[Rfam]
RNA sequence: AAUAGUCCUCGUUAGGCGAGGCUCCUAUACAAACACAGGCUGCUGCCCGGGAACAUCGAAAGAUGCCUACGGGUAGAACAGGGAUUGUCGGCAUAAGGCUUUCCAUAAGGCAGCUAAGAAAUGAUGAUAUUUCUUUACGUUGUAUAGUGCCAAAACUCAACCAGGGGGAGCCGGA
Number, nucleotide and partner (000 for none) at each position: 001a000002a000003u000004a000005g171006u170007c000008c168009u167010c166011g161012u160013u096014a000015g157016g156017c000018g000019a000020g151021g150022c149023u000024c000025c147026u146027a145028u144029a143030c142031a141032a140033a000034c000035a000036c000037a000038g000039g114040c113041u112042g111043c110044u000045g074046c073047c072048c071049g070050g000051g000052a000053a000054c065055a064056u063057c062058g000059a000060a000061a000062g057063a056064u055065g054066c000067c000068u000069a000070c049071g048072g047073g046074u045075a000076g000077a000078a000079c000080a000081g000082g104083g103084a102085u000086u000087g099088u098089c097090g000091g000092c000093a000094u000095a000096a013097g089098g088099c087100u000101u000102u084103c083104c082105a000106u000107a000108a000109g000110g043111c042112a041113g040114c039115u000116a135117a134118g133119a132120a131121a130122u000123g000124a000125u000126g000127a000128u000129a000130u121131u120132u119133c118134u117135u116136u000137a000138c000139g000140u032141u031142g030143u029144a028145u027146a026147g025148u000149g022150c021151c020152a000153a000154a000155a000156c016157u015158c000159a000160a012161c011162c000163a000164g000165g000166g010167g009168g008169a000170g006171c005172c000173g000174g000175a000
Shown here is a 175-nucleotide sequence from Paenibacillus agri, a member of the family "M-box riboswitch aptamer (ykoK leader)".
M-box riboswitch, also know as ykoK leader is described as a metaloregulatory RNA that sense divalent metals and function as a genetic control element of genes related to divalent metal transport in bacteria.
It scores 149 bits against the family's covariance model.
Rfam links the family to the GO terms regulation of gene expression and response to magnesium ion.